[Rfam]
RNA sequence: CCCUUAUCUUUUAAAAGUUUCAAGUUGGUCCCUUUUUUUUUUUUAGGUUUCAAGUUGGUCUCUUCCGUCAAUUUUUUUGCUGUUACUAAUUCUGGACACGUGUCACAUGUUCAAGUGUGCCACGUGUCCAAAUCAAUUUGCCACGUGUCCAAAUUUAACGGAAAUAGUUAAAAAAUUGACGGAAGGGAACAACUUGAAACCUAAAAUAAAGAUAAGGGACCAACUUGAAACUUUUAAAAGAUAAGGGA
Numbered sequence: 001c002c003c004u005u006a007u008c009u010u011u012u013a014a015a016a017g018u019u020u021c022a023a024g025u026u027g028g029u030c031c032c033u034u035u036u037u038u039u040u041u042u043u044u045a046g047g048u049u050u051c052a053a054g055u056u057g058g059u060c061u062c063u064u065c066c067g068u069c070a071a072u073u074u075u076u077u078u079g080c081u082g083u084u085a086c087u088a089a090u091u092c093u094g095g096a097c098a099c100g101u102g103u104c105a106c107a108u109g110u111u112c113a114a115g116u117g118u119g120c121c122a123c124g125u126g127u128c129c130a131a132a133u134c135a136a137u138u139u140g141c142c143a144c145g146u147g148u149c150c151a152a153a154u155u156u157a158a159c160g161g162a163a164a165u166a167g168u169u170a171a172a173a174a175a176u177u178g179a180c181g182g183a184a185g186g187g188a189a190c191a192a193c194u195u196g197a198a199a200c201c202u203a204a205a206a207u208a209a210a211g212a213u214a215a216g217g218g219a220c221c222a223a224c225u226u227g228a229a230a231c232u233u234u235u236a237a238a239a240g241a242u243a244a245g246g247g248a
Stems, first nucleotide, its partner, number of pairs: 002246007023225003027221003031217004036212001037210003041206002044203003

MIR2655 microRNA precursor family: a 248-nucleotide RNA sequence from Trifolium subterraneum.
A search with the family's covariance model found it, with a score of 123 bits.
The organism belongs to Trifolium, within Eukaryota.